[Rfam]
Rfam assigns this 70-nucleotide sequence from Paraphoma chrysanthemicola to the family "bZIP non canonical Hac1/Xbp1 intron". The match comes from Rfam's covariance-model search (51 bits). NCBI's taxonomy places the organism under Eukaryota, Ascomycota, saccharomyceta, leotiomyceta, Paraphoma. For this family Rfam cites "Conserved RNA structures in the non-canonical Hac1/Xbp1 intron" (Hooks and Griffiths-Jones, RNA Biol, 2011). By type it is a small RNA.

RNA sequence: CCCCGAAUUCGACUCGACACAAUAUCCUGCCGCGAUAUUGUGCGACCUGCAGUGUCGGUCGGAUUCGGGG
Numbered sequence: 001c002c003c004c005g006a007a008u009u010c011g012a013c014u015c016g017a018c019a020c021a022a023u024a025u026c027c028u029g030c031c032g033c034g035a036u037a038u039u040g041u042g043c044g045a046c047c048u049g050c051a052g053u054g055u056c057g058g059u060c061g062g063a064u065u066c067g068g069g070g
Stems, first nucleotide, its partner, number of pairs: 001070007009062005021039006044056003
Dot-bracket structure: (((((((.(((((.......((((((.......))))))....(((.......))).))))).)))))))